[Rfam]
RNA sequence: UGAACAUUUACUUCAGCCAGUUUCUUCUUAAGGUGAAGAAAACUGUAAAUGUCCUAGAGAAAUAUAGUAGCUUUCUGUUCACCCUUUGCAAAUGGAAAGGGUGGAUCGUUCCUCUACUGACAUAU
Number, nucleotide and partner (000 for none) at each position: 001u000002g054003a000004a052005c051006a050007u049008u048009u047010a046011c045012u000013u000014c000015a000016g000017c000018c000019a044020g043021u042022u041023u039024c038025u037026u036027c035028u000029u000030a000031a000032g000033g000034u000035g027036a026037a025038g024039a023040a000041a022042a021043c020044u019045g011046u010047a009048a008049a007050u006051g005052u004053c000054c002055u000056a000057g000058a000059g000060a000061a000062a000063u000064a000065u119066a118067g117068u116069a115070g114071c000072u000073u000074u000075c000076u000077g000078u000079u000080c000081a000082c000083c000084c099085u098086u097087u096088g000089c000090a000091a000092a000093u000094g000095g000096a087097a086098a085099g084100g000101g000102u000103g000104g000105a000106u000107c000108g000109u000110u000111c000112c000113u000114c070115u069116a068117c067118u066119g065120a000121c000122a000123u000124a000125u000
This 125-nucleotide sequence from Myotis brandtii belongs to the Rfam family "Small Cajal body specific RNA 24". The family has 23 seed sequences and 689 matches in Rfam 15.1. It is annotated as a small Cajal body RNA. About the family: scaRNAs are a specific class of small nuclear RNAs which localise to the Cajal bodies and guide the modification of RNA polymerase II transcribed spliceosomal RNAs U1, U2, U4, U5 and U12. ACA12 belongs to the H/ACA box class of guide RNAs as it has the predicted hairpin-hinge-hairpin-tail structure,the conserved H/ACA-box motifs and is found associated with GAR1. Its Rfam clan is "SCARNA3 clan". A reference for the family is Darzacq et al. (2002), "Cajal body-specific small nuclear RNAs: a novel class of 2'-O-methylation and pseudouridylation guide RNAs", EMBO J.